[Rfam]
RNA: PyrR binding site
RNA sequence: GAUACCUUUAAUUCAGUCCCGUGAGGCUGACAAGGACAGCGGAAUGUAUGAUCUAUAUAGGGAUACGUGUGUAUAUGCGCGUGUACCUAUUGUUACCUAUGAUCGUAAACGGCUUAUUGUCAGGGCAACUGGGCAAUAAGCCUUUUUUAUU
Numbered sequence: 001g002a003u004a005c006c007u008u009u010a011a012u013u014c015a016g017u018c019c020c021g022u023g024a025g026g027c028u029g030a031c032a033a034g035g036a037c038a039g040c041g042g043a044a045u046g047u048a049u050g051a052u053c054u055a056u057a058u059a060g061g062g063a064u065a066c067g068u069g070u071g072u073a074u075a076u077g078c079g080c081g082u083g084u085a086c087c088u089a090u091u092g093u094u095a096c097c098u099a100u101g102a103u104c105g106u107a108a109a110c111g112g113c114u115u116a117u118u119g120u121c122a123g124g125g126c127a128a129c130u131g132g133g134c135a136a137u138a139a140g141c142c143u144u145u146u147u148u149a150u151u
Base pairs, nucleotide, nucleotide: 005035006034007033008032013030014029015028016027017026018025058089059088060087061086063084064083065082066081067080068079069078070077071076107146108145109144111142112141113140114139115138116137117136118135119134120133